[Rfam]
A member of the RNA family "Singlet oxygen resistance RNA X" from Qingshengfaniella alkalisoli, 70 nucleotides long. The family has 8 seed sequences and 528 matches in Rfam 15.1.

RNA sequence: AUCCCUUUCGCGUCGGGGUUAUGACGCGACCUCCCUGUUGGACUGCCCGGGCAAAUGCCCGGGCUUUUUU
Numbered sequence: 001a002u003c004c005c006u007u008u009c010g011c012g013u014c015g016g017g018g019u020u021a022u023g024a025c026g027c028g029a030c031c032u033c034c035c036u037g038u039u040g041g042a043c044u045g046c047c048c049g050g051g052c053a054a055a056u057g058c059c060c061g062g063g064c065u066u067u068u069u070u
Stems, first nucleotide, its partner, number of pairs: 008029007045064008
For this family Rfam cites "Regulation of a polyamine transporter by the conserved 3' UTR-derived sRNA SorX confers resistance to singlet oxygen and organic hydroperoxides in Rhodobacter sphaeroides" (Peng et al., RNA Biol, 2016).
Taxonomically the source falls in Qingshengfaniella (Bacteria, Pseudomonadati, Pseudomonadota, Alphaproteobacteria).
From the family's description: SorX (RSs2461)like SorY is a singlet oxygen induced sRNA that counteracts oxidative stress by targeting mRNA for a transporter in Rhodobacter. It also has an impact on resistance against organic hydroperoxides.
A search with the family's covariance model found it, with a score of 74 bits.
Rfam classes the family as a small RNA.